[Rfam]
RNA: U11 spliceosomal RNA
Organism: Pangasianodon hypophthalmus
RNA sequence: AAAAAGGGCAUCUGUCGUGAGUGACACAGUGAAAGCAGGGAAUAUCUGUUCUCAUUGCGGAAUCGCUAUCAAAGAUUUCGGAUGCAUAAUUUUUGUAAAUCGGGGUUGCUGAUAACCGACAGUUUCGGCGCCCCA
Number, nucleotide and partner (000 for none) at each position: 001a000002a000003a000004a000005a000006g000007g000008g085009c084010a083011u082012c081013u026014g025015u024016c023017g022018u000019g000020a000021g000022u017023g016024a015025c014026a013027c057028a056029g055030u054031g053032a052033a000034a050035g049036c048037a047038g046039g000040g000041a000042a000043u000044a000045u000046c038047u037048g036049u035050u034051c000052u032053c031054a030055u029056u028057g027058c080059g079060g078061a077062a076063u075064c074065g000066c000067u000068a000069u000070c000071a000072a000073a000074g064075a063076u062077u061078u060079c059080g058081g012082a011083u010084g009085c008086a000087u000088a000089a000090u000091u000092u000093u000094u000095g000096u000097a000098a000099a000100u000101c000102g000103g133104g132105g131106u130107u000108g129109c128110u127111g126112a125113u000114a124115a123116c122117c000118g000119a000120c000121a000122g116123u115124u114125u112126c111127g110128g109129c108130g106131c105132c104133c103134c000135a000